A member of the RNA family "Makes More Granules Regulator RNA (mmgR)" from Methylobacterium terrae, 75 nucleotides long. Rfam describes the family as follows. SuhB later renamed mmgR (makes more granules regulator) was a putative non-coding RNA found multiple times in the Agrobacterium tumefaciens genome and related alpha-proteobacteria. Other non-coding RNAs uncovered in the same analysis include: speF, ybhL, metA, and serC.Several studies inSinorhizobium meliloti showed that suhB element is indeed a non-coding RNA:firstly it was detected on Northern blot and called Sm8RNA, secondly in an RNAseq study referred to as SmelC689.The mutant phenotype's (strain lacking the small RNA) cytoplasm contains higher content of polyhydroxybutyrate (PBH)storage granules than wild type strain. The sRNA is required to limit the PBH intracellular accumulation when the nitrogen-fixing Sinorhizobium meliloti is under condition of surplus carbon in relation to nitrogen. The literature on the family includes a 2005 paper in Genome Biol by Corbino et al., "Evidence for a second class of S-adenosylmethionine riboswitches and other regulatory RNA motifs in alpha-proteobacteria".
RNA sequence: CCUUGCAGCCCUCUUUGGGCGUUUCCUCCCUAGACUUCGGGCCGCUCGCGAGAGCGGCCUUUUUUCUUUGUCGGC
Numbered sequence: 001c002c003u004u005g006c007a008g009c010c011c012u013c014u015u016u017g018g019g020c021g022u023u024u025c026c027u028c029c030c031u032a033g034a035c036u037u038c039g040g041g042c043c044g045c046u047c048g049c050g051a052g053a054g055c056g057g058c059c060u061u062u063u064u065u066c067u068u069u070g071u072c073g074g075c
Stems, first nucleotide, its partner, number of pairs: 008020004039060009

The pairing is the family consensus, mapped onto this sequence.